This 297-nucleotide RNA from Ignelater luminosus belongs to the Rfam family "Metazoan signal recognition particle RNA". Taxonomically the source falls in Ignelater (Eukaryota, Panarthropoda, Pancrustacea, Insecta). It scores 264 bits against the family's covariance model. The family's consensus secondary structure is taken from published work. Its family is annotated with signal recognition particle, endoplasmic reticulum targeting and SRP-dependent cotranslational protein targeting to membrane, signal sequence recognition in the Gene Ontology. About the family: The signal recognition particle (SRP) is a universally conserved ribonucleoprotein. The family is grouped with related families in Rfam's "SRP clan".
RNA sequence: ACUGGGAGCGUGGCGCACUCCUGUAACCUAGCUACUUGGGGGUCGGGUUCGGAGGAUGACUUGAGAUUUGGAGCCCUGUCGCUGUAUUGACCACGUUGACCGGGCGUCCGCACUAAGCUCGGCAUCAAUAUGGCCAUUCUGGAGGAAUCUGGAAUGGCCAGGUUGGCUAAGGAGGGGCGCAACGGGCCAGGGGGGAAACCCAGCAGCCAAAAGUCCCCGUGUCGAGCAGUAGUGGGAUCGCGCCUGGGAGUGGGAAUGCAGUGGCAGCCUUAUCAAUACAGUUAGACCCGAAUCUUU
Dot-bracket structure: ((((((((.(.....).)))))....(((........)))))).((((((((....(((((...(((..((....(((((((((((((..((((.(...((((((((((.(((((.(((((((((((((.(((((((((((((....))))))))))))).)))).(...)..(((((......(((....(((....)))....)))....))))).)))))))))..)))))))...))))))))).)))).)))))))))))))))..))).....)))))...))))))))..
Numbered sequence: 001a002c003u004g005g006g007a008g009c010g011u012g013g014c015g016c017a018c019u020c021c022u023g024u025a026a027c028c029u030a031g032c033u034a035c036u037u038g039g040g041g042g043u044c045g046g047g048u049u050c051g052g053a054g055g056a057u058g059a060c061u062u063g064a065g066a067u068u069u070g071g072a073g074c075c076c077u078g079u080c081g082c083u084g085u086a087u088u089g090a091c092c093a094c095g096u097u098g099a100c101c102g103g104g105c106g107u108c109c110g111c112a113c114u115a116a117g118c119u120c121g122g123c124a125u126c127a128a129u130a131u132g133g134c135c136a137u138u139c140u141g142g143a144g145g146a147a148u149c150u151g152g153a154a155u156g157g158c159c160a161g162g163u164u165g166g167c168u169a170a171g172g173a174g175g176g177g178c179g180c181a182a183c184g185g186g187c188c189a190g191g192g193g194g195g196a197a198a199c200c201c202a203g204c205a206g207c208c209a210a211a212a213g214u215c216c217c218c219g220u221g222u223c224g225a226g227c228a229g230u231a232g233u234g235g236g237a238u239c240g241c242g243c244c245u246g247g248g249a250g251u252g253g254g255a256a257u258g259c260a261g262u263g264g265c266a267g268c269c270u271u272a273u274c275a276a277u278a279c280a281g282u283u284a285g286a287c288c289c290g291a292a293u294c295u296u297u
Stems, first nucleotide, its partner, number of pairs: 001043003004022005010016001027040003045295008057284005065274003070269002076267013091253004096248001100247008108236002111234005117227009126165004131160013167171001174217005185208003192201003